[Rfam]
RNA sequence: CCUGGGUGAGGUAGUAGGUUGUAUAGUGGAGAAUGGAAAUUCGCGAGAUACGAAGUCCACUGUACAACUUGCUAACUUUCCCGG
Number, nucleotide and partner (000 for none) at each position: 001c084002c083003u000004g081005g080006g079007u000008g078009a077010g076011g000012u074013a073014g072015u071016a070017g069018g068019u067020u066021g065022u064023a063024u062025a061026g060027u059028g000029g000030a000031g042032a041033a000034u000035g000036g000037a000038a000039a000040u000041u032042c031043g000044c000045g000046a000047g000048a000049u054050a000051c000052g000053a000054a049055g000056u000057c000058c000059a027060c026061u025062g024063u023064a022065c021066a020067a019068c018069u017070u016071g015072c014073u013074a012075a000076c010077u009078u008079u006080c005081c004082c000083g002084g001
RNA: let-7 microRNA precursor family
Organism: Habropoda laboriosa